[Rfam]
RNA: Flavo-1 RNA
RNA sequence: CCCUAGCCCUGAUGGUAGCGGCAUCCUUUUUGUUUUUUCUUUAAAAACAAAAAGAUAUAGUGAACAGCAGGAAAUAGC
Numbered sequence: 001c002c003c004u005a006g007c008c009c010u011g012a013u014g015g016u017a018g019c020g021g022c023a024u025c026c027u028u029u030u031u032g033u034u035u036u037u038u039c040u041u042u043a044a045a046a047a048c049a050a051a052a053a054g055a056u057a058u059a060g061u062g063a064a065c066a067g068c069a070g071g072a073a074a075u076a077g078c
Stems, first nucleotide, its partner, number of pairs: 009070003013066002018061002023056003029051008